This 33-nucleotide RNA sequence from Chitinophaga niastensis belongs to the Rfam family "DUF805b RNA". Pairs were carried over by alignment from the consensus structure, which is taken from published work.
RNA sequence: CACGGGAUAGCCGAAAACCGCAUAGAGUAGGCA
Numbered sequence: 001c002a003c004g005g006g007a008u009a010g011c012c013g014a015a016a017a018c019c020g021c022a023u024a025g026a027g028u029a030g031g032c033a
Stems, first nucleotide, its partner, number of pairs: 003020003010032003
Dot-bracket structure: ..(((....[[[.....))).........]]].
It is annotated as a cis-regulatory element.